[Rfam]
RNA: Y RNA
Organism: Microcebus murinus
RNA sequence: GUUGGGUCGAGUACACUGGCAUUUACAACUAAUUGAUGACACCAGUCAUAGAUUCUUUGUUCCUUCUCCACUCCCACUGCUUCACUUGACCAGUCUUUA
Numbered sequence: 001g002u003u004g005g006g007u008c009g010a011g012u013a014c015a016c017u018g019g020c021a022u023u024u025a026c027a028a029c030u031a032a033u034u035g036a037u038g039a040c041a042c043c044a045g046u047c048a049u050a051g052a053u054u055c056u057u058u059g060u061u062c063c064u065u066c067u068c069c070a071c072u073c074c075c076a077c078u079g080c081u082u083c084a085c086u087u088g089a090c091c092a093g094u095c096u097u098u099a
Base pairs, nucleotide, nucleotide: 001094002093003092004091005090007088009087010086015078017076018075019074027061028060029059031057032056